Record summary:
A member of the RNA family "tRNA", 73 nucleotides long. Its family is annotated with triplet codon-amino acid adaptor activity in the Gene Ontology. The family's RNA type in Rfam is transfer RNA. The sequence is in the family's curated seed alignment.

RNA sequence: GUUGAAGUAGCAAAGAGGUAAAUGCGAGAAUCCUAAGAUUUCUUUAUCAAGGGUUCAAUUCCCUUCUUCAAUU
Numbered sequence: 001g002u003u004g005a006a007g008u009a010g011c012a013a014a015g016a017g018g019u020a021a022a023u024g025c026g027a028g029a030a031u032c033c034u035a036a037g038a039u040u041u042c043u044u045u046a047u048c049a050a051g052g053g054u055u056c057a058a059u060u061c062c063c064u065u066c067u068u069c070a071a072u073u
Stems, first nucleotide, its partner, number of pairs: 001072007010025003027043004049065005